[Rfam]
RNA: Betaproteobacteria toxic small RNA
Organism: Thiomonas bhubaneswarensis
RNA sequence: UGUCUCCUCCACCUCCUCCUUUGGUGGAUUCUUACCCGGGCCGAUGAAAGCAUCCGCCCGGGUAUUUUUUU
Dot-bracket structure: .......((((((.........))))))....((((((((................)))))))).......